Record summary: A member of the RNA family "c-di-GMP-I-GGC riboswitch aptamer" from Caldicellulosiruptor owensensis, 89 nucleotides long. Pairs were carried over by alignment from the consensus structure, which is taken from published work. On this family, see Smith et al., Nat Struct Mol Biol 2009: "Structural basis of ligand binding by a c-di-GMP riboswitch".

RNA sequence: CCUGAAAAAGGCAAACACAGGGAAACCUGUGGGCGCAAAGCCAUGGGCCUGUCGGGGAAAAGUCCCCUAUGGUCGCCAGGCUGCCAGGA
Numbered sequence: 001c002c003u004g005a006a007a008a009a010g011g012c013a014a015a016c017a018c019a020g021g022g023a024a025a026c027c028u029g030u031g032g033g034c035g036c037a038a039a040g041c042c043a044u045g046g047g048c049c050u051g052u053c054g055g056g057g058a059a060a061a062g063u064c065c066c067c068u069a070u071g072g073u074c075g076c077c078a079g080g081c082u083g084c085c086a087g088g089a
Stems, first nucleotide, its partner, number of pairs: 003086002011036002016031006034075001039082004044078003047073003